Purine riboswitch aptamer: a 99-nucleotide sequence from Lactiplantibacillus plantarum. Rfam's curators write: Riboswitches are metabolite binding domains within certain messenger RNAs that serve as precision sensors for their corresponding targets. Allosteric rearrangement of mRNA structure is mediated by ligand binding, and this results in modulation of gene expression. A class of riboswitches that selectively recognises guanine and becomes saturated at concentrations as low as 5 nM. In Bacillus subtilis, this mRNA motif is located on at least five separate transcriptional units that together encode 17 genes that are mostly involved in purine transport and purine nucleotide biosynthesis. It has also been shown that some members of this family are specific for adenine instead.
Nucleotides: 099
Base pairs, nucleotide, nucleotide: 018085019084020083022081023080024079025078029047030046031045032044033043034042057075058074059073060072061071062070
Number, partner (000 for none) and nucleotide at each position: 001000u002000u003000a004000u005000c006000a007000a008000u009000a010000c011000a012000a013000c014000u015000a016000a017000u018085u019084g020083c021000c022081u023080a024079u025078a026000u027000a028000a029047u030046g031045c032044c033043a034042u035000g036000a037000u038000a039000u040000g041000g042034a043033u044032g045031g046030c047029g048000a049000g050000u051000u052000u053000c054000u055000a056000c057075c058074c059073a060072g061071u062070g063000c064000c065000g066000u067000a068000a069000a070062c071061a072060c073059u074058g075057g076000a077000c078025u079024a080023u081022a082000a083020g084019c085018g086000a087000a088000u089000u090000g091000a092000g093000u094000c095000g096000a097000c098000g099000g